The family of this 378-nucleotide sequence from marine gamma proteobacterium HTCC2143 is "Bacterial RNase P class A". Pairs were carried over by alignment from the consensus structure, which is taken from published work. It is annotated as a ribozyme. Gene Ontology terms of the family: ribonuclease P activity, tRNA processing and dimeric ribonuclease P complex. Taxonomically the source falls in Spongiibacteraceae (Bacteria, Pseudomonadota, Gammaproteobacteria, Cellvibrionales).
Nucleotides: 378
Stems, first nucleotide, its partner, number of pairs: 002373009011363001012343007020049002023046005054361003058358005063246004071279003075242005080094005095109001096107004110237002115235002117231002132176002134172003139169002141166004184202006203226001204224005209218003250300004260291006271284005307326008
Number, partner (000 for none) and nucleotide at each position: 001000c002373g003372a004371g005370u006369c007368a008367g009366c010365u011363a012343g013342g014341c015340a016339g017338u018337c019000g020049c021048c022000g023046u024045u025044c026043a027042u028000u029000c030000u031000u032000a033000u034000u035000c036000g037000u038000a039000a040000g041000c042027g043026u044025g045024a046023a047000g048021g049020g050000a051000g052000g053000a054361a055360a056359g057000u058358c059357c060356g061355g062354g063246c064245u065244c066243c067000a068000u069000a070000g071279g072278g073277u074000a075242g076241g077240a078239c079238g080094c081093c082092a083091g084090g085000u086000a087000a088000c089000u090084c091083c092082u093081g094080g095109g096107g097106g098105g099104c100000g101000c102000a103000a104099g105098c106097c107096u108000a109095c110237g111236g112000a113000u114000a115235g116234u117231g118230c119000a120000g121000c122000a123000g124000a125000g126000a127000g128000u129000a130000g131000a132176c133175c134172g135171c136170c137000g138000a139169u140168g141166g142165c143164u144163u145000c146000c147000u148000c149000u150000a151000u152000u153000u154000c155000g156000g157000u158000a159000g160000a161000a162000g163144a164143a165142g166141c167000a168140c169139a170136g171135g172134u173000a174000a175133g176132g177000g178000u179000g180000a181000a182000a183000g184202g185201g186200u187199g188198c189197g190000g191000u192000a193000a194000g195000a196000g197189c198188g199187c200186a201185c202184c203226g204224c205223a206222c207221g208220a209218c210217u211216g212000g213000u214000a215000a216211c217210a218209g219000c220208u221207c222206g223205u224204g225000g226203c227000a228000u229000g230118g231117u232000a233000a234116a235115c236111c237110c238079c239078g240077u241076u242075c243066g244065g245064a246063g247000c248000a249000a250300g251299a252298c253297c254000a255000a256000a257000u258000a259000g260291g261290a262289a263288c264287u265286c266000u267000a268000u269000a270000g271284g272283c273282g274281u275280g276000u277073a278072c279071c280275c281274g282273c283272g284271c285000u286265g287264a288263g289262u290261u291260c292000g293000g294000g295000u296000a297253g298252g299251u300250u301000g302000c303000u304000a305000a306000a307326g308325u309324g310323u311322u312321g313320c314319g315000g316000u317000g318000a319314c320313g321312u322311a323310a324309c325308g326307c327000g328000u329000a330000g331000a332000u333000g334000a335000a336000u337018g338017a339016c340015u341014g342013u343012c344000c345000a346000c347000g348000a349000c350000a351000g352000a353000a354062c355061c356060c357059g358058g359056c360055u361054u362000a363011u364000c365010g366009g367008u368007u369006g370005g371004c372003u373002c374000a375000a376000a377000u378000a